About this RNA:
Shown here is a 78-nucleotide RNA sequence from Streptococcus australis, a member of the family "L17 ribosomal protein downstream element". By type it is a cis-regulatory element.
[Rfam]
RNA sequence: UGAGUGUUAUGAUGUUGGAAGGACUGGACGGUUCUUCUUAGUCUAGCUCUGGUCUGCCGCUAGGAUUUAUCCUAGCGG
Dot-bracket structure: .((((.....(((...((((((((......))))))))..)))..)))).......(((((((((....)))))))))

Taxonomically the source falls in Streptococcus australis (Bacteria, Bacillati, Bacillota, Streptococcus).